[Rfam]
RNA sequence: GGUCACGAUUGUCAGCGCCCACCGUGCGGUAUCCCCGCUCAGGCGGGUCAUCGGCCCCGGCUCGCUGACAGGCAACCCUUCUUCCGCGACGGGGUGCCCCCGGGUGACGACCAGGUCCCGUCGGCGUGGACGGGACAAGCGCGGUCU
Numbered sequence: 001g002g003u004c005a006c007g008a009u010u011g012u013c014a015g016c017g018c019c020c021a022c023c024g025u026g027c028g029g030u031a032u033c034c035c036c037g038c039u040c041a042g043g044c045g046g047g048u049c050a051u052c053g054g055c056c057c058c059g060g061c062u063c064g065c066u067g068a069c070a071g072g073c074a075a076c077c078c079u080u081c082u083u084c085c086g087c088g089a090c091g092g093g094g095u096g097c098c099c100c101c102g103g104g105u106g107a108c109g110a111c112c113a114g115g116u117c118c119c120g121u122c123g124g125c126g127u128g129g130a131c132g133g134g135a136c137a138a139g140c141g142c143g144g145u146c147u
Base pairs, nucleotide, nucleotide: 001112002111003110004109009070011069012068013067014066015065016064071098072097073096076094077093078092080089081088115136116135117134118133119132120131121130122129